[Rfam]
RNA sequence: GGGGGCAGUGAUGACACACUUGCCCUCACUGAGAUCCUGGCAGGGAUUGGUGUGGAGAACGUUCCCUGUGCUCGCUGGGGCUGAGCCCCC
Numbered sequence: 001g002g003g004g005g006c007a008g009u010g011a012u013g014a015c016a017c018a019c020u021u022g023c024c025c026u027c028a029c030u031g032a033g034a035u036c037c038u039g040g041c042a043g044g045g046a047u048u049g050g051u052g053u054g055g056a057g058a059a060c061g062u063u064c065c066c067u068g069u070g071c072u073c074g075c076u077g078g079g080g081c082u083g084a085g086c087c088c089c090c
Stems, first nucleotide, its partner, number of pairs: 001090006

Notes:
A member of the RNA family "Small nucleolar RNA SNORD103/SNORD85" from Pitta sordida, 90 nucleotides long. Rfam links the family to the GO terms nucleolus and RNA processing. Taxonomically the source falls in Pitta (Eukaryota, Saurischia, Coelurosauria, Telluraves).